[Rfam]
RNA: Small nucleolar RNA SNORD109A
RNA sequence: GGAUUGAUGAUGAGAACAACUGCCCAAGGACACUGAAUGACUCAUAAGAAAUUCCAAUCUGAGGUCC
Numbered sequence: 001g002g003a004u005u006g007a008u009g010a011u012g013a014g015a016a017c018a019a020c021u022g023c024c025c026a027a028g029g030a031c032a033c034u035g036a037a038u039g040a041c042u043c044a045u046a047a048g049a050a051a052u053u054c055c056a057a058u059c060u061g062a063g064g065u066c067c
Stems, first nucleotide, its partner, number of pairs: 001067005